This 71-nucleotide RNA sequence from Tribolium castaneum belongs to the Rfam family "mir-1 microRNA precursor family". Lineage of the source: Eukaryota > Hexapoda > Pterygota > Neuropteroidea > Tribolium. Rfam's curators write: This family represents the microRNA (miRNA) mir-1 family. miRNAs are transcribed as ~70nt precursors (modelled here) and subsequently processed by the Dicer enzyme to give a ~22nt product. In this case the mature sequence comes from the 3' arm of the precursor. The extents of the hairpin precursors are not generally known and are estimated based on hairpin prediction. Rfam 15.1 lists 4,474 matches to the family in 965 species. For this family Rfam cites "An extensive class of small RNAs in Caenorhabditis elegans" (Lee and Ambros, Science, 2001).

[Rfam]
RNA sequence: UCGCGAGUUCCGUGCUUCCUUACUUCCCAUAGUGCUUUAAACGUAUGGAAUGUAAAGAAGUAUGGAGCGAA
Dot-bracket structure: ......((((((((((((.((((.(.(((((............))))).).)))).))))))))))))...